[Rfam]
RNA: EcpR1
RNA sequence: UUACCCCAUGAUGCUCAGGUCCGCCGCAUCUCCUGGGUCGUGGGGUUUGUCGACUGGUCUACAACACCUGCGGUUCCUCGUGCCGCCGUUGCCGGCCAGUCGACACCCUU
Dot-bracket structure: ..((((((((...((((((............)))))).)))))))).(((((((((((....................................))))))))))).....